[Rfam]
RNA sequence: GACAAAGGGGGUGAGAGACCCCCUCGCCGAAAGUCCAAGGGUUCCUGCUUAAAGCUAAUCUGAGCAGGGUGAGCCGGCCCCUAAGGCGAGGCCGAGAGGCGUAGUCGAUGGGAACCAGGUGAAUAGUCCUGGGCCAGUGGGAUGUGACGGAUCGCAGAUGUUGUCCGGUCUUAUCGGAUUGACCGGGCAGCUGAGCGGUCCCUGGAAAUAGCCCCACAUCAGACCGUACCCGAAACCGACACAGGUGGACUGGUAGAGCAUACCAAGGCGCU
Numbered sequence: 001g002a003c004a005a006a007g008g009g010g011g012u013g014a015g016a017g018a019c020c021c022c023c024u025c026g027c028c029g030a031a032a033g034u035c036c037a038a039g040g041g042u043u044c045c046u047g048c049u050u051a052a053a054g055c056u057a058a059u060c061u062g063a064g065c066a067g068g069g070u071g072a073g074c075c076g077g078c079c080c081c082u083a084a085g086g087c088g089a090g091g092c093c094g095a096g097a098g099g100c101g102u103a104g105u106c107g108a109u110g111g112g113a114a115c116c117a118g119g120u121g122a123a124u125a126g127u128c129c130u131g132g133g134c135c136a137g138u139g140g141g142a143u144g145u146g147a148c149g150g151a152u153c154g155c156a157g158a159u160g161u162u163g164u165c166c167g168g169u170c171u172u173a174u175c176g177g178a179u180u181g182a183c184c185g186g187g188c189a190g191c192u193g194a195g196c197g198g199u200c201c202c203u204g205g206a207a208a209u210a211g212c213c214c215c216a217c218a219u220c221a222g223a224c225c226g227u228a229c230c231c232g233a234a235a236c237c238g239a240c241a242c243a244g245g246u247g248g249a250c251u252g253g254u255a256g257a258g259c260a261u262a263c264c265a266a267g268g269c270g271c272u
Base pairs, nucleotide, nucleotide: 006024007023008022009021010020011019025270026269027268028267033250034249035248036247039230040229044068045067046066047065048064049063053061054060075226076225077224080111081110085106086105087104089102091100092099093098115132116131117130118129119128135222137217140214141213144212145211149201150200151199152198160191161190162189163188164187165186166185167184168183169182170181236245237244252264253263254262255261